[Rfam]
Shown here is a 142-nucleotide RNA sequence from Oricola thermophila, a member of the family "Alphaproteobacterial sRNA ar7".
RNA sequence: AAUCGGCAUAUUGCGCCGAUGUCCGGCUAAGGCCCGUCCCCCGCCGAUCCGGACAGGUGGCAGCCUAAUCCCCCUCUCCGGGCUGCCACUUUUUGAACCUUUUCGAGUUUCCGCCGCAUGGUCCGCCAUGCGGCGGUUUUGU
Dot-bracket structure: .....................(((((.(..(((.........))).).))))).(((((((((((...............)))))))))))...................(((((((((((....)))))))))))......
A reference for the family is del Val et al. (2012), "A survey of sRNA families in alpha-proteobacteria", RNA Biol.